A member of the RNA family "h2cR sRNA" from Burkholderia dolosa, 137 nucleotides long.
The literature on the family includes a 2012 paper in PLoS One by Ramos et al., "The Novel Cis-Encoded Small RNA h2cR Is a Negative Regulator of hfq2 in Burkholderia cenocepacia".
[Rfam]
RNA sequence: CUCAGAGAAUAUGUUGUGCGUGUGUGCGACGCGUCGGUCCACAAGGUAUUUGGCGGGAUUCUACCUUGUUCGCUCCGCGAGCGCGUAGUCGCGAUUGUGUCGAACCGUAACCCACUAUAGACGUUCCCGCGCUUUUU
Numbered sequence: 001c002u003c004a005g006a007g008a009a010u011a012u013g014u015u016g017u018g019c020g021u022g023u024g025u026g027c028g029a030c031g032c033g034u035c036g037g038u039c040c041a042c043a044a045g046g047u048a049u050u051u052g053g054c055g056g057g058a059u060u061c062u063a064c065c066u067u068g069u070u071c072g073c074u075c076c077g078c079g080a081g082c083g084c085g086u087a088g089u090c091g092c093g094a095u096u097g098u099g100u101c102g103a104a105c106c107g108u109a110a111c112c113c114a115c116u117a118u119a120g121a122c123g124u125u126c127c128c129g130c131g132c133u134u135u136u137u
Stems, first nucleotide, its partner, number of pairs: 006137004012131003016127001018124004023119003026115001028113001030107002033105002037101001040099005047091001050088003053084003061081002065077001068074001
Overview
Lineage of the source: Bacteria > Pseudomonadota > Burkholderia > Burkholderia cepacia complex > Burkholderia dolosa.